[Rfam]
RNA sequence: AAACAUUUUAAUUUAAAUCACACACAUGUCGAAACUAUGUCCGGGGUGCUUACUAUCAAAUUGUGAUAAUAGGUCGGAUUAUAGCGGUAUGUGGAGGCUCAAC
Numbered sequence: 001a002a003a004c005a006u007u008u009u010a011a012u013u014u015a016a017a018u019c020a021c022a023c024a025c026a027u028g029u030c031g032a033a034a035c036u037a038u039g040u041c042c043g044g045g046g047u048g049c050u051u052a053c054u055a056u057c058a059a060a061u062u063g064u065g066a067u068a069a070u071a072g073g074u075c076g077g078a079u080u081a082u083a084g085c086g087g088u089a090u091g092u093g094g095a096g097g098c099u100c101a102a103c
Base pairs, nucleotide, nucleotide: 023093024092025091026090027089028088029087030086035084036083037082038081039080040078041077042076043075048074049073050072051071052070
RNA: t44 RNA
Organism: Catenovulum maritimum